[Rfam]
RNA: Alphaproteobacterial ar14
Organism: Rhizobium sp. Leaf306
RNA sequence: AAUCAUCGACGGACGCACUCCUCCUCCCAGCGUCCCCGAUGGGGCCGGCAACACUCCUCCUCCCAGUUGUUGGCCAGUUUCAGAAGCCCGACGCACCUCCUCCCGCGUCGGGCUUUUCUG
Numbered sequence: 001a002a003u004c005a006u007c008g009a010c011g012g013a014c015g016c017a018c019u020c021c022u023c024c025u026c027c028c029a030g031c032g033u034c035c036c037c038g039a040u041g042g043g044g045c046c047g048g049c050a051a052c053a054c055u056c057c058u059c060c061u062c063c064c065a066g067u068u069g070u071u072g073g074c075c076a077g078u079u080u081c082a083g084a085a086g087c088c089c090g091a092c093g094c095a096c097c098u099c100c101u102c103c104c105g106c107g108u109c110g111g112g113c114u115u116u117u118c119u120g
Stems, first nucleotide, its partner, number of pairs: 007038002011035006043075010084115011